[Rfam]
Nucleotides: 111
Base pairs, nucleotide, nucleotide: 003047004046005045006044007043010040014037015036016035017034018033019032049106050105051104052103053102054101055100056099057098058097059096
Number, partner (000 for none) and nucleotide at each position: 001000a002000c003047a004046c005045c006044c007043c008000u009000u010040g011000a012000u013000g014037c015036u016035c017034a018033g019032g020000u021000c022000c023000g024000c025000c026000g027000c028000a029000u030000c031000u032019c033018c034017u035016g036015g037014g038000u039000u040010c041000u042000u043007g044006g045005g046004g047003u048000c049106a050105g051104u052103c053102g054101g055100u056099c057098g058097a059096c060000a061000g062000c063000a064000u065000u066000c067000u068000u069000a070000u071000c072000g073000g074000u075000u076000u077000c078000c079000u080000c081000g082000u083000a084000c085000c086000g087000u088000g089000a090000g091000u092000g093000u094000c095000u096059g097058u098057c099056g100055g101054c102053c103052g104051g105050c106049u107000c108000c109000u110000u111000c